RNA: mir-9193 microRNA precursor family
Organism: Cnephaeus nilssonii
RNA sequence: CUGGGAGGGGGCGUGUCCCUCAGCCCGGAUUGCAAGAGGGUGCAGGCCAGGCUGAGGGAUCCCACCAGUGCACG
Numbered sequence: 001c002u003g004g005g006a007g008g009g010g011g012c013g014u015g016u017c018c019c020u021c022a023g024c025c026c027g028g029a030u031u032g033c034a035a036g037a038g039g040g041u042g043c044a045g046g047c048c049a050g051g052c053u054g055a056g057g058g059a060u061c062c063c064a065c066c067a068g069u070g071c072a073c074g
Stems, first nucleotide, its partner, number of pairs: 002072002005069001008066002011063001013062001015060011027048002030045005